[Rfam]
RNA sequence: GCAGCCGGAAUGCCGAAUCUUGCCGCUGGCUGCGGAGAAACCCCACAGUCAUGACGGCAAGAGCGGGGGAACCAGGUAAGUGCCGCACCGUGCGUCAGCGCGGUCGGCUUGGGGUGAAGACGUGUUGCGGCGUACGCCGCUGAAAACACGUCCGGGCAACUCCAGCCCGAAUCCGACAGCUCACCUCGUAGGCAUAGGAGAGGGAUACC
Numbered sequence: 001g002c003a004g005c006c007g008g009a010a011u012g013c014c015g016a017a018u019c020u021u022g023c024c025g026c027u028g029g030c031u032g033c034g035g036a037g038a039a040a041c042c043c044c045a046c047a048g049u050c051a052u053g054a055c056g057g058c059a060a061g062a063g064c065g066g067g068g069g070a071a072c073c074a075g076g077u078a079a080g081u082g083c084c085g086c087a088c089c090g091u092g093c094g095u096c097a098g099c100g101c102g103g104u105c106g107g108c109u110u111g112g113g114g115u116g117a118a119g120a121c122g123u124g125u126u127g128c129g130g131c132g133u134a135c136g137c138c139g140c141u142g143a144a145a146a147c148a149c150g151u152c153c154g155g156g157c158a159a160c161u162c163c164a165g166c167c168c169g170a171a172u173c174c175g176a177c178a179g180c181u182c183a184c185c186u187c188g189u190a191g192g193c194a195u196a197g198g199a200g201a202g203g204g205a206u207a208c209c
Stems, first nucleotide, its partner, number of pairs: 011194004018062008063189006073111005112174003120151007154168004